Description: The record is a 91-nucleotide RNA sequence from Ornithorhynchus anatinus, which matches "mir-146 microRNA precursor family" in Rfam. Rfam's curators put it in the seed alignment. For this family Rfam cites "Identification of tissue-specific microRNAs from mouse" (Lagos-Quintana et al., Curr Biol, 2002). NCBI's taxonomy places the organism under Eukaryota, Eumetazoa, Chordata, Vertebrata, Ornithorhynchus. The family's consensus secondary structure was predicted with WAR. Rfam 15.1 lists 1,617 matches to the family in 642 species.
[Rfam]
RNA sequence: AUGCGGUGCUUGGCUCUGAGAACUGAAUUCCAUAGGCUGUGAGUUGAUGAGGAUGCCCUAGGGAUUCAGUUCCACAGCCCAGCAACCCACA
Dot-bracket structure: ........((.(((.....(((((((........(((.................)))........)))))))....))).)).........